RNA sequence: UUACCAAAAGUUAAUUUUGUGGGGGAAGGUUUUAUUAUAAUAACCUUCACCAACUUGGGCUGUUUGGGAGAGCAAAGAAAAGACCACACUCCACAGUGGGCUAUACAACUUAGUAUAGUUCAUUACUAUUUUGUGGCCUACAUU
Numbered sequence: 001u002u003a004c005c006a007a008a009a010g011u012u013a014a015u016u017u018u019g020u021g022g023g024g025g026a027a028g029g030u031u032u033u034a035u036u037a038u039a040a041u042a043a044c045c046u047u048c049a050c051c052a053a054c055u056u057g058g059g060c061u062g063u064u065u066g067g068g069a070g071a072g073c074a075a076a077g078a079a080a081a082g083a084c085c086a087c088a089c090u091c092c093a094c095a096g097u098g099g100g101c102u103a104u105a106c107a108a109c110u111u112a113g114u115a116u117a118g119u120u121c122a123u124u125a126c127u128a129u130u131u132u133g134u135g136g137c138c139u140a141c142a143u144u
Stems, first nucleotide, its partner, number of pairs: 004067005012062002015059003021055002024051002028045004081139002084136005095124012
Small nucleolar RNA SNORA4: a 144-nucleotide RNA sequence from Propithecus coquereli. Lineage of the source: Eukaryota > Eumetazoa > Deuterostomia > Amniota > Propithecus. Its Rfam clan is "SNORA4 clan". Gene Ontology terms of the family: RNA processing and nucleolus. ACA4 is a member of the H/ACA class of snoRNA that guide the sites of modification of uridines to pseudouridines.